The family of this 179-nucleotide RNA sequence is "Beta-globin co-transcriptional cleavage ribozyme".
From the family's description: Transcription termination of RNA polymerase II transcripts is proposed to occur by a two stage process. The first stage involves pre-termination cleavage (PTC) of the nascent transcript downstream of the poly(A) site. This process is also referred to as co-transcriptional cleavage (CoTC).
The literature on the family includes a 2001 paper in Cell by Dye and Proudfoot, "Multiple transcript cleavage precedes polymerase release in termination by RNA polymerase II".
Pairs were carried over by alignment from the consensus structure, which is taken from published work.

RNA sequence: GCAUCCUGUUACCAUCAACAACCUUAACUUCAUUUACUUAUUCAAUAGCUGGGUAGGUAGAUGCUAGAGUCUACAAAAUAAAAUGAGUCUCAAGUGGUCCUUGUCCCCUCUCCUACUCAAAUUCUGAAUCUAGUUGACAAAAUUCUGAAAUCAAGGCAUAUAGUCAGUGAUGAUAGAAG
Numbered sequence: 001g002c003a004u005c006c007u008g009u010u011a012c013c014a015u016c017a018a019c020a021a022c023c024u025u026a027a028c029u030u031c032a033u034u035u036a037c038u039u040a041u042u043c044a045a046u047a048g049c050u051g052g053g054u055a056g057g058u059a060g061a062u063g064c065u066a067g068a069g070u071c072u073a074c075a076a077a078a079u080a081a082a083a084u085g086a087g088u089c090u091c092a093a094g095u096g097g098u099c100c101u102u103g104u105c106c107c108c109u110c111u112c113c114u115a116c117u118c119a120a121a122u123u124c125u126g127a128a129u130c131u132a133g134u135u136g137a138c139a140a141a142a143u144u145c146u147g148a149a150a151u152c153a154a155g156g157c158a159u160a161u162a163g164u165c166a167g168u169g170a171u172g173a174u175a176g177a178a179g
Stems, first nucleotide, its partner, number of pairs: 023179003030173005046059002049056002061159005067118004075111001085110003091103004122149003126145004131140001
Dot-bracket structure: ......................(((....(((((...........((.((....)).)).(((((.((((....(.........(((...((((.....))))....))))...))))...(((.((((.(........).)))).))).....))))).........)))))...)))